[Rfam]
RNA sequence: GGUCACGAGAUCCAGCGCGAAGCCCCGGCUUGCUGGACGGCAACCCUCCCUCGCGGCGGGGUGCUCCGGGUGAUGACCCGGCGGCGACCAGAGCCGGUCGCCGCAAGCGCGAGCU
Numbered sequence: 001g002g003u004c005a006c007g008a009g010a011u012c013c014a015g016c017g018c019g020a021a022g023c024c025c026c027g028g029c030u031u032g033c034u035g036g037a038c039g040g041c042a043a044c045c046c047u048c049c050c051u052c053g054c055g056g057c058g059g060g061g062u063g064c065u066c067c068g069g070g071u072g073a074u075g076a077c078c079c080g081g082c083g084g085c086g087a088c089c090a091g092a093g094c095c096g097g098u099c100g101c102c103g104c105a106a107g108c109g110c111g112a113g114c115u
Stems, first nucleotide, its partner, number of pairs: 001078004009038001011037006021030002039065003044061003048056002081104009
Rfam assigns this 115-nucleotide RNA from Luteipulveratus halotolerans to the family "SAM (S-adenosyl methionine) riboswitch aptamer".
Taxonomically the source falls in Luteipulveratus (Bacteria, Actinomycetes, Micrococcales, Dermacoccaceae).
It scores 108 bits against the family's covariance model.